A member of the RNA family "mir-21 microRNA precursor family" from Menidia menidia, 73 nucleotides long. Pairs were carried over by alignment from the consensus structure, which was predicted with RNAalifold. A search with the family's covariance model found it, with a score of 70 bits. Taxonomically the source falls in Menidia (Eukaryota, Neopterygii, Euacanthomorphacea, Ovalentaria). The family has 41 seed sequences and 777 matches in Rfam 15.1.
RNA sequence: CGUCAGCUAGCUUAUCAGACUGGUGUUGGCAGUUAAACGUGCAUGGCAGCAGCAGUCUAUAAGCUUGCUGAAG
Numbered sequence: 001c002g003u004c005a006g007c008u009a010g011c012u013u014a015u016c017a018g019a020c021u022g023g024u025g026u027u028g029g030c031a032g033u034u035a036a037a038c039g040u041g042c043a044u045g046g047c048a049g050c051a052g053c054a055g056u057c058u059a060u061a062a063g064c065u066u067g068c069u070g071a072a073g
Stems, first nucleotide, its partner, number of pairs: 009065007018057005024051005030045001